Rfam assigns this 53-nucleotide RNA from filamentous cyanobacterium CCP2 to the family "Nitrogen stress-induced RNA 1".
Pairs were carried over by alignment from the consensus structure.
For this family Rfam cites "Heterocyst-specific transcription of NsiR1, a non-coding RNA encoded in a tandem array of direct repeats in cyanobacteria" (Ionescu et al., J Mol Biol, 2010).
It is annotated as a small RNA.
Lineage of the source: Bacteria > Bacillati > Cyanobacteriota.
RNA sequence: UGGUAGAUGCACCCUGAUUCUUGCCUCCUGGUCUUAGGCUAGGAGGCUUUUUU
Numbered sequence: 001u002g003g004u005a006g007a008u009g010c011a012c013c014c015u016g017a018u019u020c021u022u023g024c025c026u027c028c029u030g031g032u033c034u035u036a037g038g039c040u041a042g043g044a045g046g047c048u049u050u051u052u053u
Stems, first nucleotide, its partner, number of pairs: 002013003024046010